Rfam assigns this 118-nucleotide sequence to the family "Flavobacterium-1 RNA". It is one of the family's seed sequences. The family's consensus secondary structure is taken from published work. Rfam classes the family as a small RNA.
[Rfam]
RNA sequence: AAAGGACCGGCGUCCAAAUAAUGCCUCGCGCUAUUCCCUGUACGUCAAGCUGUGACCCGCAAGGGUAGCCUCGGAGCCUUUGCUCCUGCAGGAGUACGUGCACGGAAACUGUGGGGGU
Numbered sequence: 001a002a003a004g005g006a007c008c009g010g011c012g013u014c015c016a017a018a019u020a021a022u023g024c025c026u027c028g029c030g031c032u033a034u035u036c037c038c039u040g041u042a043c044g045u046c047a048a049g050c051u052g053u054g055a056c057c058c059g060c061a062a063g064g065g066u067a068g069c070c071u072c073g074g075a076g077c078c079u080u081u082g083c084u085c086c087u088g089c090a091g092g093a094g095u096a097c098g099u100g101c102a103c104g105g106a107a108a109c110u111g112u113g114g115g116g117g118u
Stems, first nucleotide, its partner, number of pairs: 001081005007074003010045004015040002023031002049069002057065002083117009097104002